[Rfam]
RNA: Nitrogen stress-induced RNA 1
Organism: Leptolyngbya sp. FACHB-261
RNA sequence: UGGUAGAUGCACCCUGAUUCACCCCCAGAGUCCUUGGACUUUCGGGGGGUUUUUAU
Numbered sequence: 001u002g003g004u005a006g007a008u009g010c011a012c013c014c015u016g017a018u019u020c021a022c023c024c025c026c027a028g029a030g031u032c033c034u035u036g037g038a039c040u041u042u043c044g045g046g047g048g049g050u051u052u053u054u055a056u
Stems, first nucleotide, its partner, number of pairs: 002013003022048005028041004